Notes:
This 503-nucleotide RNA from Actinacidiphila glaucinigra belongs to the Rfam family "Saccharopolyspora sRNA 350". The base pairs follow the family's consensus structure, which was predicted with RNAfold. It is annotated as an antisense RNA. A reference for the family is Liu et al. (2013), "Prediction and characterization of small non-coding RNAs related to secondary metabolites in Saccharopolyspora erythraea", PLoS One. It scores 169 bits against the family's covariance model. NCBI's taxonomy places the organism under Bacteria, Actinomycetota, Actinomycetes, Streptomycetaceae, Actinacidiphila.

RNA sequence: CUGGCGGUGUACUCCCAGGUGCUGUCGGGGCCGGCCAGGCCCUCGGAGCCGAAGUGGUCGCCGUCGGCGAUGCUGCCGAUCACGCCCUGGCCGUCCCACUUGGCCGGGGCCAGCUUGUUGAUCUUUCCGUGGGCGACGAGGAAGACGUGGUCGGCCGGUUGCCCGGCGGCCACGAUCGUCUCGCCGGCCGCGUACUCCCGUUGCUCGAACUGCCCGGCGAGCGAGGCCAGUACCGCCUCCUCGGUGAAGCCGCGCAGCAGGGGCAGUUCGCCGAGCUCCGCCGGGAUCACCCGGACCUCGGAGCCGGUCUGGAUGAAGUCCACCCGCCCGUCGCCCACCGAGUAGCUGAGCCUCCGGUUGACCCGGUAGGCGCCGCCGGCGGCCUCGACCCACGGCAGCACCCGCAGCAGCCAGCGCGACGUGAUUCCCUGCAUCUGCGGCGCGGAUUUGGUGGUCGUCGCCAAAUUCCGCGCGGCAGCGGUGCCCAGACUCCGCUGCGACUG
Number, nucleotide and partner (000 for none) at each position: 001c000002u000003g000004g000005c000006g390007g389008u388009g000010u000011a385012c000013u000014c382015c381016c000017a000018g328019g327020u000021g325022c000023u000024g000025u322026c000027g320028g319029g000030g000031c000032c315033g000034g000035c000036c312037a000038g310039g309040c000041c307042c306043u000044c000045g305046g304047a000048g000049c301050c300051g299052a298053a000054g233055u232056g000057g000058u229059c000060g227061c226062c225063g000064u223065c000066g111067g110068c109069g000070a000071u000072g000073c000074u000075g104076c000077c102078g101079a100080u000081c000082a000083c000084g095085c000086c093087c000088u000089g000090g000091c000092c000093g086094u000095c084096c000097c000098a000099c000100u079101u078102g077103g000104c075105c000106g000107g000108g000109g068110c067111c066112a000113g000114c000115u000116u000117g222118u221119u220120g000121a000122u217123c216124u000125u000126u000127c212128c000129g210130u209131g206132g205133g204134c203135g202136a201137c000138g199139a000140g197141g000142a000143a196144g195145a000146c000147g000148u000149g000150g191151u000152c000153g189154g188155c187156c186157g185158g184159u183160u178161g177162c000163c000164c174165g173166g000167c000168g000169g000170c000171c000172a000173c165174g164175a000176u000177c161178g160179u000180c000181u000182c000183g159184c158185c157186g156187g155188c154189c153190g000191c150192g000193u000194a000195c144196u143197c140198c000199c138200g000201u136202u135203g134204c133205u132206c131207g000208a000209a130210c129211u000212g127213c000214c000215c000216g123217g122218c000219g000220a119221g118222c117223g064224a000225g062226g061227c060228c000229a058230g000231u000232a055233c054234c000235g000236c294237c293238u000239c000240c000241u289242c000243g287244g000245u286246g000247a000248a000249g000250c283251c000252g281253c280254g279255c000256a277257g276258c275259a000260g271261g000262g269263g000264c000265a000266g000267u000268u000269c262270g000271c260272c000273g000274a000275g258276c257277u256278c000279c254280g253281c252282c000283g250284g000285g000286a245287u243288c000289a241290c000291c000292c000293g237294g236295a000296c000297c000298u052299c051300g050301g049302a000303g000304c046305c045306g042307g041308u000309c039310u038311g000312g036313a000314u000315g032316a000317a000318g000319u028320c027321c000322a025323c000324c000325c021326g000327c019328c018329c342330g000331u340332c000333g000334c000335c000336c000337a000338c000339c000340g331341a000342g329343u000344a000345g000346c000347u000348g000349a000350g000351c379352c378353u000354c000355c375356g374357g373358u000359u000360g000361a000362c370363c369364c000365g000366g000367u000368a000369g363370g362371c000372g000373c357374c356375g355376c000377c000378g352379g351380c000381g015382g014383c000384c000385u011386c000387g000388a008389c007390c006391c431392a430393c000394g428395g427396c000397a425398g000399c423400a422401c421402c000403c418404g417405c416406a000407g415408c000409a000410g000411c000412c000413a000414g000415c407416g405417c404418g403419a000420c000421g401422u400423g399424a000425u397426u000427c395428c394429c000430u392431g391432c000433a000434u000435c000436u000437g476438c475439g000440g473441c000442g471443c470444g469445g468446a467447u465448u464449u463450g462451g461452u460453g000454g000455u000456c000457g000458u000459c000460g452461c451462c450463a449464a448465a447466u000467u446468c445469c444470g443471c442472g000473c440474g000475g438476c437477a000478g000479c000480g502481g501482u500483g000484c499485c000486c497487a496488g495489a000490c000491u000492c000493c000494g000495c488496u487497g486498c000499g484500a482501c481502u480503g000